This 62-nucleotide sequence from Trichormus azollae belongs to the Rfam family "Nitrogen stress-induced RNA 1". It scores 59 bits against the family's covariance model. The base pairs follow the family's consensus structure.
[Rfam]
RNA sequence: UGGUAGAUGCACCUUGAUCUUCAACUCCUCUGGUAGGUUAACACCCACCGGAGGUUUUCUUU
Numbered sequence: 001u002g003g004u005a006g007a008u009g010c011a012c013c014u015u016g017a018u019c020u021u022c023a024a025c026u027c028c029u030c031u032g033g034u035a036g037g038u039u040a041a042c043a044c045c046c047a048c049c050g051g052a053g054g055u056u057u058u059c060u061u062u
Stems, first nucleotide, its partner, number of pairs: 002013003027054008036045002

The organism belongs to Trichormus azollae, within Bacteria.